[Rfam]
SAM riboswitch aptamer (S box leader): a 106-nucleotide RNA sequence from Fictibacillus arsenicus.
RNA sequence: CUCUUAUCCAGAGUGGUGAAGGGAACUGGCCCGAUGAAACCCGGCAACCUGCGAUUCGUAAGGUGCUAACUCCAGCAGAAUGUUUUUACAUUUUGGAAGAUAAGGU
Numbered sequence: 001c002u003c004u005u006a007u008c009c010a011g012a013g014u015g016g017u018g019a020a021g022g023g024a025a026c027u028g029g030c031c032c033g034a035u036g037a038a039a040c041c042c043g044g045c046a047a048c049c050u051g052c053g054a055u056u057c058g059u060a061a062g063g064u065g066c067u068a069a070c071u072c073c074a075g076c077a078g079a080a081u082g083u084u085u086u087u088a089c090a091u092u093u094u095g096g097a098a099g100a101u102a103a104g105g106u
Stems, first nucleotide, its partner, number of pairs: 002105007013042001015041003021032003026075004043067004048063002050060004071098001076095006
Pairs were carried over by alignment from the consensus structure, which is taken from published work.